The family of this 75-nucleotide RNA from Tropilaelaps mercedesae is "mir-71 microRNA precursor family".
It scores 56 bits against the family's covariance model.
Gene Ontology terms of the family: RISC complex and miRNA-mediated post-transcriptional gene silencing.
On this family, see Liu et al., BMC Genomics 2010: "MicroRNAs of Bombyx mori identified by Solexa sequencing".
The family's consensus secondary structure was predicted with RNAalifold.
The organism belongs to Tropilaelaps, within Eukaryota.
[Rfam]
RNA sequence: ACGCCAUGAAAGACAUGGGUAGUGAGAUGUCCUACGAAAGUCGCUUUAUCUCACUAGCCUGUCUUUGACGAGGUU
Numbered sequence: 001a002c003g004c005c006a007u008g009a010a011a012g013a014c015a016u017g018g019g020u021a022g023u024g025a026g027a028u029g030u031c032c033u034a035c036g037a038a039a040g041u042c043g044c045u046u047u048a049u050c051u052c053a054c055u056a057g058c059c060u061g062u063c064u065u066u067g068a069c070g071a072g073g074u075u
Base pairs, nucleotide, nucleotide: 009066010065011064012063013062014061015060017059018058021055022054023053024052025051026050027049028048029047